[Rfam]
RNA sequence: GUAAUGUUUCUUGCUCAAAUGAGUAUUCCAAUCACAGUUACAUUAAUUUGCUUGUAUGGAUGUGUUAUUGAGAUGCUCAUUUGAGCAAGCAAUGUUAA
Numbered sequence: 001g002u003a004a005u006g007u008u009u010c011u012u013g014c015u016c017a018a019a020u021g022a023g024u025a026u027u028c029c030a031a032u033c034a035c036a037g038u039u040a041c042a043u044u045a046a047u048u049u050g051c052u053u054g055u056a057u058g059g060a061u062g063u064g065u066u067a068u069u070g071a072g073a074u075g076c077u078c079a080u081u082u083g084a085g086c087a088a089g090c091a092a093u094g095u096u097a098a
Stems, first nucleotide, its partner, number of pairs: 004095005010089018029070002